[Rfam]
MIR474 microRNA precursor family: a 95-nucleotide RNA sequence from Populus trichocarpa. The sequence is in the family's curated seed alignment. NCBI's taxonomy places the organism under Eukaryota, Viridiplantae, Gunneridae, Malpighiales, Populus.
RNA sequence: UCAAAAGCUGCUGGGUCUGGCUGGACAGCCAGACCCAAAUCGCUUCCAAUUGGUGCUGGGUUUGGCUGCUCAGCCAGACCCAGCAGCUUUUGGCA
Number, nucleotide and partner (000 for none) at each position: 001u093002c092003a000004a090005a089006a088007g087008c086009u085010g084011c083012u082013g081014g080015g079016u078017c077018u076019g075020g074021c073022u072023g071024g070025a000026c068027a067028g066029c065030c000031a044032g043033a000034c000035c000036c000037a000038a000039a000040u000041c000042g000043c032044u031045u000046c000047c000048a062049a061050u060051u059052g000053g000054u000055g000056c000057u000058g000059g051060g050061u049062u048063u000064g000065g029066c028067u027068g026069c000070u024071c023072a022073g021074c020075c019076a018077g017078a016079c015080c014081c013082a012083g011084c010085a009086g008087c007088u006089u005090u004091u000092g002093g001094c000095a000